Record summary
This 85-nucleotide sequence from Anaerotruncus sp. AF02-27 belongs to the Rfam family "ZMP/ZTP riboswitch aptamer (pfl RNA motif)". The match comes from Rfam's covariance-model search (63 bits). The family's consensus secondary structure is taken from published work.
RNA sequence: AUACCCUUCCGUAACUGACGGUACGAUGUGGGCAACCACAGGGGAGCGGAAUGGGAUAACCGAGCCGACCGUCUGGGCACACCUG
Dot-bracket structure: ...((.((((((..(([[[[[......((((....))))..))..)))))).)).......(.(((..]]]]]..))).).....
Numbered sequence: 001a002u003a004c005c006c007u008u009c010c011g012u013a014a015c016u017g018a019c020g021g022u023a024c025g026a027u028g029u030g031g032g033c034a035a036c037c038a039c040a041g042g043g044g045a046g047c048g049g050a051a052u053g054g055g056a057u058a059a060c061c062g063a064g065c066c067g068a069c070c071g072u073c074u075g076g077g078c079a080c081a082c083c084u085g
Stems, first nucleotide, its partner, number of pairs: 004054002007051006015043002017073005028039004062080001064078003